[Rfam]
RNA sequence: AAAUAUCUUCAGGGCACCGUGUAAUUCGGGACCGGCGGUAAAUAGGGCUUUGACCUUAUGACUCCGCGAUUCGCUACGGCGAUUGAAGCAGUGAGAAUCUGCUAGCGACAGUAAAGUCUGGAUGGAAGAAGAUGAAC
Numbered sequence: 001a002a003a004u005a006u007c008u009u010c011a012g013g014g015c016a017c018c019g020u021g022u023a024a025u026u027c028g029g030g031a032c033c034g035g036c037g038g039u040a041a042a043u044a045g046g047g048c049u050u051u052g053a054c055c056u057u058a059u060g061a062c063u064c065c066g067c068g069a070u071u072c073g074c075u076a077c078g079g080c081g082a083u084u085g086a087a088g089c090a091g092u093g094a095g096a097a098u099c100u101g102c103u104a105g106c107g108a109c110a111g112u113a114a115a116g117u118c119u120g121g122a123u124g125g126a127a128g129a130a131g132a133u134g135a136a137c
Stems, first nucleotide, its partner, number of pairs: 004134007017029003031117002033107002035067004062105002087103005109120003
Rfam assigns this 137-nucleotide RNA from Lactococcus lactis to the family "FMN riboswitch aptamer (RFN element)". About the family: The RFN element is a highly conserved domain that is found frequently in the 5'-untranslated regions of prokaryotic mRNAs that encode for flavin mononucleotide (FMN) biosynthesis and transport proteins. This element is a metabolite-dependent riboswitch that directly binds FMN in the absence of proteins. The base pairs follow the family's consensus structure, which is taken from published work. The source organism's lineage runs through Bacteria, Bacilli, Streptococcaceae, Lactococcus and Lactococcus lactis subsp. lactis.